[Rfam]
RNA sequence: UUGGCGUGGUAGGUUAUAAUGAACUCAUUUCUUGCCUUUUACCAGAAGUGACCGUGUAACCGCCACUAAACGCCGUUUAAGAAUCUUUGGAACCAAAACAGAACGCCACUGUGUGUGGU
Numbered sequence: 001u002u003g004g005c006g007u008g009g010u011a012g013g014u015u016a017u018a019a020u021g022a023a024c025u026c027a028u029u030u031c032u033u034g035c036c037u038u039u040u041a042c043c044a045g046a047a048g049u050g051a052c053c054g055u056g057u058a059a060c061c062g063c064c065a066c067u068a069a070a071c072g073c074c075g076u077u078u079a080a081g082a083a084u085c086u087u088u089g090g091a092a093c094c095a096a097a098a099c100a101g102a103a104c105g106c107c108a109c110u111g112u113g114u115g116u117g118g119u
Base pairs, nucleotide, nucleotide: 003074004073005072006071007065008064009063010062012061013060014059015058016057017056018055025051026050027049028048029047030046031045032044091119093118094117095116097114
RNA: U5 spliceosomal RNA
Organism: Botryosphaeria dothidea